mir-3200 microRNA precursor family: a 93-nucleotide RNA sequence from Nyctereutes procyonoides.
The family has 4 seed sequences and 66 matches in Rfam 15.1.
The organism belongs to Nyctereutes, within Eukaryota.
The family's consensus secondary structure was predicted with RNAalifold.

[Rfam]
RNA sequence: AGGAGGUGGCCGAGGGAACCCAAGAAGGUGCACAAAGGUUUGUGUCCAAUACACUCCACACCUUGUGCUACUCAGGUCCUCUCAUGCCCUCCC
Numbered sequence: 001a002g003g004a005g006g007u008g009g010c011c012g013a014g015g016g017a018a019c020c021c022a023a024g025a026a027g028g029u030g031c032a033c034a035a036a037g038g039u040u041u042g043u044g045u046c047c048a049a050u051a052c053a054c055u056c057c058a059c060a061c062c063u064u065g066u067g068c069u070a071c072u073c074a075g076g077u078c079c080u081c082u083c084a085u086g087c088c089c090u091c092c093c
Stems, first nucleotide, its partner, number of pairs: 002092005008087001012083003016079001018077003023072002027069006036063004041053005